[Rfam]
RNA sequence: CCUGUUGUUCGACCAACAGUAGCCUAGGGAUAGUGCGACGCUGGUAACGGCAUCGUGCGGAGCUUCCUGACAAUGUAUCCCCCGCAAGGGUGCGUAUUCCUCGCGAGAGGAUGCGUGGAUUCUGCCAGUCACAAGGUGGAUGAGGAG
Numbered sequence: 001c002c003u004g005u006u007g008u009u010c011g012a013c014c015a016a017c018a019g020u021a022g023c024c025u026a027g028g029g030a031u032a033g034u035g036c037g038a039c040g041c042u043g044g045u046a047a048c049g050g051c052a053u054c055g056u057g058c059g060g061a062g063c064u065u066c067c068u069g070a071c072a073a074u075g076u077a078u079c080c081c082c083c084g085c086a087a088g089g090g091u092g093c094g095u096a097u098u099c100c101u102c103g104c105g106a107g108a109g110g111a112u113g114c115g116u117g118g119a120u121u122c123u124g125c126c127a128g129u130c131a132c133a134a135g136g137u138g139g140a141u142g143a144g145g146a147g
Base pairs, nucleotide, nucleotide: 002019003018004017005016006015007014027068028067029066030065033058034057035056036055037054038053040051041050042049043048081090082089083088091117092116093115094114101108102107121140122139123138124137125136126135
A member of the RNA family "Group II catalytic intron D1-D4-7" from Noviherbaspirillum denitrificans, 147 nucleotides long. The literature on the family includes a 2001 paper in Trends Genet by Bonen and Vogel, "The ins and outs of group II introns". The match comes from Rfam's covariance-model search (108 bits). Rfam links the family to the GO term Group II intron splicing. Rfam 15.1 lists 1,296 matches to the family in 705 species. Pairs were carried over by alignment from the consensus structure. Group II introns are found in rRNA, tRNA and mRNA of organelles in fungi, plants and protists, and also in mRNA in bacteria.